[Rfam]
RNA sequence: ACAACAUAGUCGGGGUGCCGAAAGGCUGAGAUUGCAUAGAGCGAGACCCGUUGAACCUGAUUCAGUUAAUACUGGCGUAGGGAACUAUCAGUCUUAUCGG
Number, nucleotide and partner (000 for none) at each position: 001a000002c000003a000004a000005c000006a088007u087008a086009g085010u084011c050012g049013g048014g047015g000016u044017g026018c025019c024020g000021a000022a000023a000024g019025g018026c017027u000028g000029a000030g000031a000032u000033u043034g042035c041036a000037u000038a000039g000040a000041g035042c034043g033044a016045g000046a000047c014048c013049c012050g011051u000052u000053g000054a000055a000056c081057c080058u079059g078060a000061u000062u075063c074064a073065g072066u000067u000068a000069a000070u000071a000072c065073u064074g063075g062076c000077g000078u059079a058080g057081g056082g000083a000084a010085c009086u008087a007088u006089c000090a000091g000092u000093c000094u000095u000096a000097u000098c000099g000100g000
TPP riboswitch aptamer (THI element): a 100-nucleotide sequence from Vibrio sediminis. The source organism's lineage runs through Bacteria, Pseudomonadota, Gammaproteobacteria, Vibrionales and Vibrio. It scores 81 bits against the family's covariance model.